[Rfam]
RNA sequence: AAGGUCUGUCGCAGAUCGCUUCCUCCCCUGGAGCGAUCGCCGGAACCAUCAGGCGUCUCCCCGCGCCCGGUUCCCGAGCCCCGUAGGCCCCCCCUGCCUGCGGGGCUUUUUU
Number, nucleotide and partner (000 for none) at each position: 001a000002a000003g000004g012005u000006c011007u000008g000009u000010c000011g006012c004013a000014g038015a037016u036017c035018g034019c033020u032021u031022c030023c000024u000025c000026c000027c000028c000029u000030g022031g021032a020033g019034c018035g017036a016037u015038c014039g000040c000041c000042g074043g073044a072045a071046c070047c069048a000049u000050c000051a000052g067053g066054c065055g064056u000057c000058u000059c000060c000061c000062c000063g000064c055065g054066c053067c052068c000069g047070g046071u045072u044073c043074c042075c000076g000077a107078g106079c105080c104081c103082c102083g101084u100085a099086g098087g097088c096089c000090c000091c000092c000093c000094c000095u000096g088097c087098c086099u085100g084101c083102g082103g081104g080105g079106c078107u077108u000109u000110u000111u000112u000